Annotation:
This 95-nucleotide sequence from Kutzneria sp. 744 belongs to the Rfam family "Glycine riboswitch aptamer". NCBI's taxonomy places the organism under Bacteria, Bacillati, Actinomycetes, Pseudonocardiaceae, Kutzneria.
RNA sequence: UCACACCGAGCGGGAGAGUCCUGUCGAGGUCGGGCAGGCGCCGAAGGAGCAAAUCCUCCCCGGAAUCUCUCAGGCACCCCUACCGCUCGGGACAG
Numbered sequence: 001u002c003a004c005a006c007c008g009a010g011c012g013g014g015a016g017a018g019u020c021c022u023g024u025c026g027a028g029g030u031c032g033g034g035c036a037g038g039c040g041c042c043g044a045a046g047g048a049g050c051a052a053a054u055c056c057u058c059c060c061c062g063g064a065a066u067c068u069c070u071c072a073g074g075c076a077c078c079c080c081u082a083c084c085g086c087u088c089g090g091g092a093c094a095g
Base pairs, nucleotide, nucleotide: 006090007089008088009087010086011085012084013083020038021037022036023035040075041074042073043071044070047069048068049067054062
The match comes from Rfam's covariance-model search (68 bits).